[Rfam]
RNA: UnaL2 LINE 3' element
Organism: Synaphobranchus kaupii
RNA sequence: AUAAAACAGUUGUGUAAAUCGCUCUGGAUAAGAGCGUCUGCUAAAUGCCUAUAA
Number, nucleotide and partner (000 for none) at each position: 001a000002u000003a000004a000005a000006a000007c000008a000009g000010u000011u000012g000013u043014g041015u040016a039017a000018a000019u000020c036021g035022c034023u033024c032025u031026g000027g000028a000029u000030a000031a025032g024033a023034g022035c021036g020037u000038c000039u016040g015041c014042u000043a013044a000045a000046u000047g000048c000049c000050u000051a000052u000053a000054a000